The record is a 75-nucleotide RNA sequence from Myotis davidii, which matches "mir-9223 microRNA precursor family" in Rfam. The match comes from Rfam's covariance-model search (86 bits). Pairs were carried over by alignment from the consensus structure, which was predicted with RNAalifold.

RNA sequence: GGUGGUUCUCGGGUGACGCACCCCGGAAUUGGGCUCACUCCUCUCUGGUUCCAGGUGCGUCACCCGAGAACCACG
Number, nucleotide and partner (000 for none) at each position: 001g000002g074003u073004g000005g071006u070007u069008c068009u067010c066011g065012g064013g063014u062015g061016a060017c059018g000019c057020a056021c055022c054023c000024c000025g052026g051027a050028a049029u048030u047031g046032g045033g044034c000035u000036c000037a000038c000039u000040c000041c000042u000043c000044u033045c032046u031047g030048g029049u028050u027051c026052c025053a000054g022055g021056u020057g019058c000059g017060u016061c015062a014063c013064c012065c011066g010067a009068g008069a007070a006071c005072c000073a003074c002075g000